[Rfam]
RNA sequence: UUAUUGAAAGGGCAAACUCAUGGAAAAAUGAGAACGCAAAGUUUCAGGUCUAAAGUAGUGUAAACUGCCACGAUGGCUGAACUGCAUGA
Numbered sequence: 001u002u003a004u005u006g007a008a009a010g011g012g013c014a015a016a017c018u019c020a021u022g023g024a025a026a027a028a029u030g031a032g033a034a035c036g037c038a039a040a041g042u043u044u045c046a047g048g049u050c051u052a053a054a055g056u057a058g059u060g061u062a063a064a065c066u067g068c069c070a071c072g073a074u075g076g077c078u079g080a081a082c083u084g085c086a087u088g089a
Stems, first nucleotide, its partner, number of pairs: 012037002017032005040083004045079003048074003055068004

Shown here is an 89-nucleotide RNA sequence from Bacillus sp. FJAT-27916, a member of the family "c-di-GMP-I riboswitch aptamer". It scores 68 bits against the family's covariance model. For this family Rfam cites "Identification of 22 candidate structured RNAs in bacteria using the CMfinder comparative genomics pipeline" (Weinberg et al., Nucleic Acids Res, 2007).